RNA sequence: UGAUCCUUUUAAGCCAAGGAUCACCUAGCCAACUGACGUUGUUAGUGAAUUUAUUUUGUUCACACAUAUCUAUAGCCAAUCACGAACAUUGUGAUUGGCUUUUUUUCA
Numbered sequence: 001u002g003a004u005c006c007u008u009u010u011a012a013g014c015c016a017a018g019g020a021u022c023a024c025c026u027a028g029c030c031a032a033c034u035g036a037c038g039u040u041g042u043u044a045g046u047g048a049a050u051u052u053a054u055u056u057u058g059u060u061c062a063c064a065c066a067u068a069u070c071u072a073u074a075g076c077c078a079a080u081c082a083c084g085a086a087c088a089u090u091g092u093g094a095u096u097g098g099c100u101u102u103u104u105u106u107c108a
Stems, first nucleotide, its partner, number of pairs: 001023006040072002045063006076098008
The record is a 108-nucleotide RNA sequence from Vibrio ziniensis, which matches "Qrr RNA" in Rfam. Rfam 15.1 lists 148 matches to the family in 70 species. This family represents a set of small RNAs (the Qrr RNAs) that are thought to be involved in the regulation of quorum sensing in Vibrio species. It is believed that these RNAs, guided by a protein, Hfq, can mediate the destabilisation of the quorum-sensing master regulators LuxR/HapR mRNAs. A reference for the family is Tu and Bassler (2007), "Multiple small RNAs act additively to integrate sensory information and control quorum sensing in Vibrio harveyi", Genes Dev. The family's consensus secondary structure is taken from published work. By type it is a small RNA.